This 110-nucleotide RNA from Paralteromonas sediminis belongs to the Rfam family "Ribosomal S15 leader". The family's RNA type in Rfam is cis-regulatory leader. For this family Rfam cites "Pseudoknot and translational control in the expression of the S15 ribosomal protein" (Benard et al., Biochimie, 1996). Gene Ontology term of the family: regulation of translation, ncRNA-mediated. Lineage of the source: Bacteria > Gammaproteobacteria > Alteromonadales > Alteromonadaceae > Paralteromonas.

RNA sequence: UGGUUGCGCUGAAUUAGUGAUUGGCGUGACCCUAUUCAAUUUUGGAGAAGAUUAUGUCACUAACUAAAGCAGAAACUGCACAAAUUAUUUCUGAUUACGCUGUGAAAGAA
Numbered sequence: 001u002g003g004u005u006g007c008g009c010u011g012a013a014u015u016a017g018u019g020a021u022u023g024g025c026g027u028g029a030c031c032c033u034a035u036u037c038a039a040u041u042u043u044g045g046a047g048a049a050g051a052u053u054a055u056g057u058c059a060c061u062a063a064c065u066a067a068a069g070c071a072g073a074a075a076c077u078g079c080a081c082a083a084a085u086u087a088u089u090u091c092u093g094a095u096u097a098c099g100c101u102g103u104g105a106a107a108g109a110a
Base pairs, nucleotide, nucleotide: 007026008025009024010023011022012021042063043062044061045060047058